[Rfam]
RNA: HNH endonuclease-associated RNA and ORF (HEARO) RNA
Organism: Moorena producens
RNA sequence: GUCACGAACCCACCGCUCACGCCUAUCGGCUAUAACGGGGGCUUGAAAAAGUUCACAACGUGACCAGCCUCAGACUUUUGAGUCUACGUUUUUUGAGCUAUCACACCUUUAGAUGCGUCGCUAGUCUUCUGCUCUGUGGUUAAUAGUUAAAUAGUCAUAAACGGGUUAAGACAGUGCUAUUAACAAGACAAACUCAAAAAACCUUGGCGUUCGCGCAAGCGUGUGCGAA
Dot-bracket structure: ((((((...((.((......................)).))(((....))).......))))))..(((..(((((....)))))..((((((((((.....((..(...((((...[[[[..))))...)....)).(((((((((...((.(((.(((.....))).))).)))))))))))........))))))))))...)))................]]]].
Numbered sequence: 001g002u003c004a005c006g007a008a009c010c011c012a013c014c015g016c017u018c019a020c021g022c023c024u025a026u027c028g029g030c031u032a033u034a035a036c037g038g039g040g041g042c043u044u045g046a047a048a049a050a051g052u053u054c055a056c057a058a059c060g061u062g063a064c065c066a067g068c069c070u071c072a073g074a075c076u077u078u079u080g081a082g083u084c085u086a087c088g089u090u091u092u093u094u095g096a097g098c099u100a101u102c103a104c105a106c107c108u109u110u111a112g113a114u115g116c117g118u119c120g121c122u123a124g125u126c127u128u129c130u131g132c133u134c135u136g137u138g139g140u141u142a143a144u145a146g147u148u149a150a151a152u153a154g155u156c157a158u159a160a161a162c163g164g165g166u167u168a169a170g171a172c173a174g175u176g177c178u179a180u181u182a183a184c185a186a187g188a189c190a191a192a193c194u195c196a197a198a199a200a201a202c203c204u205u206g207g208c209g210u211u212c213g214c215g216c217a218a219g220c221g222u223g224u225g226c227g228a229a
Stems, first nucleotide, its partner, number of pairs: 001064006010041002013038002042051003067208003072085005088202010103137002107131001111127004118228004139184009151175002154172003158168003